[Rfam]
RNA: MIR5269 microRNA precursor family
Organism: Medicago truncatula
Nucleotides: 080
Base pairs, nucleotide, nucleotide: 001080002079003078004077005076006075007074008073009072010071011070015066016065017064018063024057025056026054027053028052029051030050031049032048
Number, partner (000 for none) and nucleotide at each position: 001080u002079u003078g004077g005076a006075u007074g008073a009072a010071a011070u012000c013000a014000a015066u016065g017064u018063g019000g020000a021000u022000a023000c024057c025056a026054c027053a028052u029051u030050u031049u032048g033000g034000a035000a036000a037000u038000u039000a040000a041000c042000c043000c044000c045000a046000c047000a048032u049031a050030a051029a052028a053027u054026g055000g056025u057024g058000a059000g060000a061000c062000a063018c064017a065016c066015g067000c068000g069000a070011a071010u072009u073008u074007c075006a076005u077004c078003c079002a080001a